[Rfam]
RNA sequence: UAAAUGAACUUAAUUGUACCGUAGACAGUAGGAGCAGUUAACUGCUUAAAAGUCAUCCUGCCGAGGUGUGCUAAAUACAACUAAUUCGUACAAGUAUGUACGAUGAUGAUAUUUAUGCCUCCAUGUCUGCAUGGAGGCAUUUUUUAUUAGAGAU
Numbered sequence: 001u002a003a004a005u006g007a008a009c010u011u012a013a014u015u016g017u018a019c020c021g022u023a024g025a026c027a028g029u030a031g032g033a034g035c036a037g038u039u040a041a042c043u044g045c046u047u048a049a050a051a052g053u054c055a056u057c058c059u060g061c062c063g064a065g066g067u068g069u070g071c072u073a074a075a076u077a078c079a080a081c082u083a084a085u086u087c088g089u090a091c092a093a094g095u096a097u098g099u100a101c102g103a104u105g106a107u108g109a110u111a112u113u114u115a116u117g118c119c120u121c122c123a124u125g126u127c128u129g130c131a132u133g134g135a136g137g138c139a140u141u142u143u144u145u146a147u148u149a150g151a152g153a154u
Base pairs, nucleotide, nucleotide: 028061029060030059031058032057033056034045035044036043116139117138118137119136120135121134122133123132124131125130
Rfam assigns this 154-nucleotide sequence from Filobacillus milosensis to the family "Ribosomal protein L10 leader". A reference for the family is Zengel and Lindahl (1994), "Diverse mechanisms for regulating ribosomal protein synthesis in Escherichia coli", Prog Nucleic Acid Res Mol Biol. Its family is annotated with regulation of gene expression in the Gene Ontology. Rfam classes the family as a cis-regulatory leader. Pairs were carried over by alignment from the consensus structure, which was predicted with CMfinder.